[Rfam]
RNA sequence: UCAAGUUAUGAGUAUUCCCGAUAGGAUUCACUACCUGUGAAGAAGCCUUGUAACCGAAAACGGCCGUAAGUUACGGUCAGAAACAAAUGGGGGAAUUUAUUUUG
Numbered sequence: 001u002c003a004a005g006u007u008a009u010g011a012g013u014a015u016u017c018c019c020g021a022u023a024g025g026a027u028u029c030a031c032u033a034c035c036u037g038u039g040a041a042g043a044a045g046c047c048u049u050g051u052a053a054c055c056g057a058a059a060a061c062g063g064c065c066g067u068a069a070g071u072u073a074c075g076g077u078c079a080g081a082a083a084c085a086a087a088u089g090g091g092g093g094a095a096u097u098u099a100u101u102u103u104g
Stems, first nucleotide, its partner, number of pairs: 015095005023048003027041005054090002
Shown here is a 104-nucleotide RNA from Paucilactobacillus vaccinostercus, a member of the family "SAM-III riboswitch aptamer (SMK box)". Its family is annotated with regulation of translational initiation and methionine adenosyltransferase activity in the Gene Ontology. The source organism's lineage runs through Bacteria, Bacillota, Bacilli, Paucilactobacillus and Paucilactobacillus vaccinostercus. A search with the family's covariance model found it, with a score of 63 bits. The base pairs follow the family's consensus structure, which is taken from published work.